RNA sequence: GUUGCUGUUGGUACAAAUCCAAUCACUUCCAUUUUUCAUUUAAGAUGAGAAAGAAUUCCCCAUUGGUAGCAAAUGGUAUUCAUUAAGCAGGGAAAUCCUAU
Numbered sequence: 001g002u003u004g005c006u007g008u009u010g011g012u013a014c015a016a017a018u019c020c021a022a023u024c025a026c027u028u029c030c031a032u033u034u035u036u037c038a039u040u041u042a043a044g045a046u047g048a049g050a051a052a053g054a055a056u057u058c059c060c061c062a063u064u065g066g067u068a069g070c071a072a073a074u075g076g077u078a079u080u081c082a083u084u085a086a087g088c089a090g091g092g093a094a095a096u097c098c099u100a101u
Base pairs, nucleotide, nucleotide: 008022009021010020011019058092059091060090062083063082065080066079067078069077070076

Plastid-rps12 3UTR RNA: a 101-nucleotide RNA. The sequence is in the family's curated seed alignment. About the family: Plastid rpl20 is a non-coding RNA (ncRNA) recognised in plastids. It was found in the three prime untranslated region (3UTR) of rps12 gene, its 3UTR location sugest a role in transcript maduration. Rfam 15.1 lists 1,710 matches to the family in 1,426 species. The family's consensus secondary structure was predicted with LocARNA.